[Rfam]
A member of the RNA family "Glycine riboswitch aptamer" from Quadrisphaera granulorum, 103 nucleotides long.
The base pairs follow the family's consensus structure.
RNA sequence: UCAUCCCGCGCGGGAGAGCCCUGACGCCGAACUCUCGGCGAGCAGGGCGCCGAAGGGGCAACCCUCCCCGGAACCUCUCAGGCACCAGGACCGCACGGGCGAG
Numbered sequence: 001u002c003a004u005c006c007c008g009c010g011c012g013g014g015a016g017a018g019c020c021c022u023g024a025c026g027c028c029g030a031a032c033u034c035u036c037g038g039c040g041a042g043c044a045g046g047g048c049g050c051c052g053a054a055g056g057g058g059c060a061a062c063c064c065u066c067c068c069c070g071g072a073a074c075c076u077c078u079c080a081g082g083c084a085c086c087a088g089g090a091c092c093g094c095a096c097g098g099g100c101g102a103g
Stems, first nucleotide, its partner, number of pairs: 006098003010094004020047003049083003052079002056077003062071002

Taxonomically the source falls in Quadrisphaera (Bacteria, Bacillati, Actinomycetota, Kineosporiales).